This 93-nucleotide sequence from Aliiroseovarius sediminilitoris belongs to the Rfam family "Rhodo-rpoB RNA".
The family's RNA type in Rfam is cis-regulatory element.
The organism belongs to Aliiroseovarius, within Bacteria.
It scores 59 bits against the family's covariance model.
RNA sequence: GGAUCGGGAGGAAGCCCUUGGGACGGUUUCCGGGAAUUGGUCCGAACCCCCAAUCUCGGACGAGGCGUUGCCGGUGACCCAACGGUUGGCGCA
Dot-bracket structure: (((((....(((((((........))))))).......))))).....................((((.((((.........))))..)))).